[Rfam]
RNA sequence: UAGGCACCUAAACCCAAGAACCCCUGUUUCUGGUAGCAGUGGUUUAAACAGGUGCUGACAGCAAUUGGAUCUCGUCGCCUUUGGGGAGCUCUGACCGUGCCCCUGAAAGUGAAUUUGGAGAUUCUACACCC
Numbered sequence: 001u002a003g004g005c006a007c008c009u010a011a012a013c014c015c016a017a018g019a020a021c022c023c024c025u026g027u028u029u030c031u032g033g034u035a036g037c038a039g040u041g042g043u044u045u046a047a048a049c050a051g052g053u054g055c056u057g058a059c060a061g062c063a064a065u066u067g068g069a070u071c072u073c074g075u076c077g078c079c080u081u082u083g084g085g086g087a088g089c090u091c092u093g094a095c096c097g098u099g100c101c102c103c104u105g106a107a108a109g110u111g112a113a114u115u116u117g118g119a120g121a122u123u124c125u126a127c128a129c130c131c
Base pairs, nucleotide, nucleotide: 003056004055005054006053007052008051009050019044020043021042022041024039025038026037027036028035067124068123069122070121071120072119073118079109080108081107082106084104085103086102088100089099